The record is a 173-nucleotide sequence from a Dysgonamonadaceae bacterium, which matches "Group II catalytic intron D1-D4-3" in Rfam. The organism belongs to Dysgonomonadaceae, within Bacteria.

RNA sequence: UUGCGGGCGACUGCAAAUCUGAAAGAAGUCAUCAGCAAAUCUGACGUUUUGACGAACAGAAAUCUGAUAUAAGGCUCAUCUGAGGGGGCAACCGAGCUAUGGAUUGGGAACGCCCGAAAAUCAACCGUAACUUAGAUGAGUAAAUCAGGCAGAACGCAGAGAAAGUUUAGUAU
Numbered sequence: 001u002u003g004c005g006g007g008c009g010a011c012u013g014c015a016a017a018u019c020u021g022a023a024a025g026a027a028g029u030c031a032u033c034a035g036c037a038a039a040u041c042u043g044a045c046g047u048u049u050u051g052a053c054g055a056a057c058a059g060a061a062a063u064c065u066g067a068u069a070u071a072a073g074g075c076u077c078a079u080c081u082g083a084g085g086g087g088g089c090a091a092c093c094g095a096g097c098u099a100u101g102g103a104u105u106g107g108g109a110a111c112g113c114c115c116g117a118a119a120a121u122c123a124a125c126c127g128u129a130a131c132u133u134a135g136a137u138g139a140g141u142a143a144a145u146c147a148g149g150c151a152g153a154a155c156g157c158a159g160a161g162a163a164a165g166u167u168u169a170g171u172a173u
Stems, first nucleotide, its partner, number of pairs: 001016006028173002032169001035166002040160004045156007063149006074141003078137007086115004092107004
About the family: Group II introns are found in rRNA, tRNA and mRNA of organelles in fungi, plants and protists, and also in mRNA in bacteria.